[Rfam]
Nucleotides: 054
Base pairs, nucleotide, nucleotide: 001038007035008034010033011030019049020048021047022046023045
Number, partner (000 for none) and nucleotide at each position: 001038a002000a003000g004000u005000a006000c007035c008034c009000u010033c011030c012000a013000a014000g015000c016000c017000c018000u019049a020048c021047a022046g023045g024000u025000u026000g027000g028000a029000a030011g031000a032000g033010g034008g035007g036000g037000c038001u039000a040000u041000c042000a043000g044000u045023c046022c047021u048020g049019u050000a051000g052000g053000c054000a